[Rfam]
RNA sequence: GGGCACACCCGUAGACCUCGCCUGACUCUGCCUGUGGCCGGGCGAGGGGGACAGCGUGUGCAAGAGUAAUCUGGAGUUCUUGCCAGCUCCCGUCGGCUCGCUCGCCCGCUGGGUAAAUGCAGUGCUCCUGACAUCC
Numbered sequence: 001g002g003g004c005a006c007a008c009c010c011g012u013a014g015a016c017c018u019c020g021c022c023u024g025a026c027u028c029u030g031c032c033u034g035u036g037g038c039c040g041g042g043c044g045a046g047g048g049g050g051a052c053a054g055c056g057u058g059u060g061c062a063a064g065a066g067u068a069a070u071c072u073g074g075a076g077u078u079c080u081u082g083c084c085a086g087c088u089c090c091c092g093u094c095g096g097c098u099c100g101c102u103c104g105c106c107c108g109c110u111g112g113g114u115a116a117a118u119g120c121a122g123u124g125c126u127c128c129u130g131a132c133a134u135c136c
Base pairs, nucleotide, nucleotide: 003061004060005059006058007057008056016047017046018045019044020043021042022041023040024039073128074127075126076125078124081121082120083119093112094111095110096109097108
Description: The family of this 136-nucleotide RNA from Crocuta crocuta is "Small nucleolar RNA SNORA58". The family has 20 seed sequences and 471 matches in Rfam 15.1. It scores 121 bits against the family's covariance model. Rfam describes the family as follows. ACA52 is a member of the H/ACA class of snoRNA that guide the sites of modification of uridines to pseudouridines. Clan: SNORA44 clan. By type it is an H/ACA-box small nucleolar RNA. The organism belongs to Crocuta, within Eukaryota. Its family is annotated with nucleolus and RNA processing in the Gene Ontology. The base pairs follow the family's consensus structure, which was predicted with PFOLD.